[Rfam]
RNA sequence: GGCCUAAAGCGUCCGUAGCUUGCUGUGUAAGUCCAUUGGGAAAUCGACCAGCUCAACUGGUCGACGUCCGGUGGAAACUACACAGCUUGGGGCCGAGAGACUCAACGGGUACGUCCGGGGUAGGAGUGAAAUCCUGUAAUCCUGGACGGACCACCAAUGGGGAAACCACGUUGAGAGACCGGACCCGACAGUGAGGGACGAAAGCCAGGGUCUCGAACCGGAUUAGAUACCCGGGUAGUCCUGGCUGUAAACAAUGCUCGCUAGGUAUGUCACGCGCCAUGAGCACGUGAUGUGCCGUAGUGAAGACGAUAAGCGAGCCGCCUGGGAAGUACGUCCGCAAGGAUGAAACUUAAAGGAAU
Numbered sequence: 001g002g003c004c005u006a007a008a009g010c011g012u013c014c015g016u017a018g019c020u021u022g023c024u025g026u027g028u029a030a031g032u033c034c035a036u037u038g039g040g041a042a043a044u045c046g047a048c049c050a051g052c053u054c055a056a057c058u059g060g061u062c063g064a065c066g067u068c069c070g071g072u073g074g075a076a077a078c079u080a081c082a083c084a085g086c087u088u089g090g091g092g093c094c095g096a097g098a099g100a101c102u103c104a105a106c107g108g109g110u111a112c113g114u115c116c117g118g119g120g121u122a123g124g125a126g127u128g129a130a131a132u133c134c135u136g137u138a139a140u141c142c143u144g145g146a147c148g149g150a151c152c153a154c155c156a157a158u159g160g161g162g163a164a165a166c167c168a169c170g171u172u173g174a175g176a177g178a179c180c181g182g183a184c185c186c187g188a189c190a191g192u193g194a195g196g197g198a199c200g201a202a203a204g205c206c207a208g209g210g211u212c213u214c215g216a217a218c219c220g221g222a223u224u225a226g227a228u229a230c231c232c233g234g235g236u237a238g239u240c241c242u243g244g245c246u247g248u249a250a251a252c253a254a255u256g257c258u259c260g261c262u263a264g265g266u267a268u269g270u271c272a273c274g275c276g277c278c279a280u281g282a283g284c285a286c287g288u289g290a291u292g293u294g295c296c297g298u299a300g301u302g303a304a305g306a307c308g309a310u311a312a313g314c315g316a317g318c319c320g321c322c323u324g325g326g327a328a329g330u331a332c333g334u335c336c337g338c339a340a341g342g343a344u345g346a347a348a349c350u351u352a353a354a355g356g357a358a359u
Stems, first nucleotide, its partner, number of pairs: 001322003009319001011199004016193001018192003022086007030079002032075009045063007090186003093182003101175007108152002112148008123134003160167002204245006214238001218234004256318006264296011276284002300307002324351003333344004